A member of the RNA family "freshwater-2 RNA", 90 nucleotides long. By type it is a cis-regulatory element. The family's consensus secondary structure is taken from published work.
RNA sequence: CGUCGUCAUAUAGAUGGGACUUAUGCGGAAUAACCACCGCGUACCCAGGAGAACUGGGAUUGGACUCCUAAAAAGAGGAGAAAACAAAUG
Numbered sequence: 001c002g003u004c005g006u007c008a009u010a011u012a013g014a015u016g017g018g019a020c021u022u023a024u025g026c027g028g029a030a031u032a033a034c035c036a037c038c039g040c041g042u043a044c045c046c047a048g049g050a051g052a053a054c055u056g057g058g059a060u061u062g063g064a065c066u067c068c069u070a071a072a073a074a075g076a077g078g079a080g081a082a083a084a085c086a087a088a089u090g
Base pairs, nucleotide, nucleotide: 003017004016005015006014022043023042024041025040026039027038028037044058045057046056047055